[Rfam]
RNA sequence: GGUCCCCCCGCGACGAGUCGCUGUGAACCCCGUCAGGCCCGGAAGGGAGCAGCGGCAGCAGCGAUCCUCGGGCGCCGGGGUGUGGCU
Numbered sequence: 001g002g003u004c005c006c007c008c009c010g011c012g013a014c015g016a017g018u019c020g021c022u023g024u025g026a027a028c029c030c031c032g033u034c035a036g037g038c039c040c041g042g043a044a045g046g047g048a049g050c051a052g053c054g055g056c057a058g059c060a061g062c063g064a065u066c067c068u069c070g071g072g073c074g075c076c077g078g079g080g081u082g083u084g085g086c087u
Stems, first nucleotide, its partner, number of pairs: 001087004006080005011072001014070004019063006030055004038047003
The family of this 87-nucleotide RNA sequence from Halorhodospira halophila is "Bacterial small signal recognition particle RNA". The literature on the family includes a 2003 paper in Nucleic Acids Res by Rosenblad et al., "SRPDB: Signal Recognition Particle Database". About the family: The signal recognition particle (SRP) is a universally conserved ribonucleoprotein involved in the co-translational targeting of proteins to membranes. The organism belongs to Halorhodospira halophila, within Bacteria. The sequence is in the family's curated seed alignment. By type it is a non-coding RNA gene.